Rfam assigns this 229-nucleotide sequence from Eggerthella sp. YY7918 to the family "raiA RNA". NCBI's taxonomy places the organism under Bacteria, Bacillati, Actinomycetota, Coriobacteriia, Eggerthella. Rfam's curators put it in the seed alignment.
RNA sequence: UUCUUUCGAGUCUGUAGUUGCGGGUUUAAUCCUUAGUCCACGGCAGAUGCGGUCGAAAGGACCCACGUAAGCCGCGCGGUUUCCGCGUGACGAUCAUGGCGUAUCCUAGAGGUAAGUCGCACCGCCUGUAAAUUGCAGCGACAUACGGUCGCAACGGGCGAGAGGGUGGGGGCGCAAGCUCAACUCCGGUGCGCGAGUGUGGGGGCAAAGACUAGGUCAGUCGAAAGAA
Numbered sequence: 001u002u003c004u005u006u007c008g009a010g011u012c013u014g015u016a017g018u019u020g021c022g023g024g025u026u027u028a029a030u031c032c033u034u035a036g037u038c039c040a041c042g043g044c045a046g047a048u049g050c051g052g053u054c055g056a057a058a059g060g061a062c063c064c065a066c067g068u069a070a071g072c073c074g075c076g077c078g079g080u081u082u083c084c085g086c087g088u089g090a091c092g093a094u095c096a097u098g099g100c101g102u103a104u105c106c107u108a109g110a111g112g113u114a115a116g117u118c119g120c121a122c123c124g125c126c127u128g129u130a131a132a133u134u135g136c137a138g139c140g141a142c143a144u145a146c147g148g149u150c151g152c153a154a155c156g157g158g159c160g161a162g163a164g165g166g167u168g169g170g171g172g173c174g175c176a177a178g179c180u181c182a183a184c185u186c187c188g189g190u191g192c193g194c195g196a197g198u199g200u201g202g203g204g205g206c207a208a209a210g211a212c213u214a215g216g217u218c219a220g221u222c223g224a225a226a227g228a229a
Stems, first nucleotide, its partner, number of pairs: 001229009012220003015214005040200003043053001046105006062099002067094001072089001097207001118193005123160007164186004172179002
Dot-bracket structure: (((((((((..((((((((....................((([..((((((.]........((...(....(................)....)..[))))))))............((((((((((((........................)))))))...((((....((....))...))))..)))))....)))......]..)))))...))))))))))))